Overview: Rfam assigns this 66-nucleotide sequence from Limosilactobacillus fermentum to the family "Bacillus-plasmid RNA". The match comes from Rfam's covariance-model search (31 bits).
[Rfam]
RNA sequence: CGUGUCAACGGUAACCAACAGCACGUGAUCACCUCGGUCAACGCCCUGGUUGACACGAUUACCCAG
Numbered sequence: 001c002g003u004g005u006c007a008a009c010g011g012u013a014a015c016c017a018a019c020a021g022c023a024c025g026u027g028a029u030c031a032c033c034u035c036g037g038u039c040a041a042c043g044c045c046c047u048g049g050u051u052g053a054c055a056c057g058a059u060u061a062c063c064c065a066g
Stems, first nucleotide, its partner, number of pairs: 001057009